[Rfam]
A member of the RNA family "sRNA-Xcc1" from Bilophila wadsworthia, 84 nucleotides long. The family's consensus secondary structure was predicted with RNAalifold. By type it is a small RNA. Lineage of the source: Bacteria > Pseudomonadati > Thermodesulfobacteriota > Desulfovibrionaceae > Bilophila wadsworthia.
RNA sequence: CUCCGGGUGUGGACGAAAUACAAAACCUGAAAGGGGAAAUAGUCCGCUGUCUUGCGGCAGUUUUGAGCACCCGGAGUUUGCAUA
Numbered sequence: 001c002u003c004c005g006g007g008u009g010u011g012g013a014c015g016a017a018a019u020a021c022a023a024a025a026c027c028u029g030a031a032a033g034g035g036g037a038a039a040u041a042g043u044c045c046g047c048u049g050u051c052u053u054g055c056g057g058c059a060g061u062u063u064u065g066a067g068c069a070c071c072c073g074g075a076g077u078u079u080g081c082a083u084a
Base pairs, nucleotide, nucleotide: 001076002075003074004073005072006071007070008069009068012044013043014042016040026035027034028033046061047060048059049058050057
On this family, see Wengelnik et al., Mol Plant Microbe Interact 1996: "HrpG, a key hrp regulatory protein of Xanthomonas campestris pv. vesicatoria is homologous to two-component response regulators".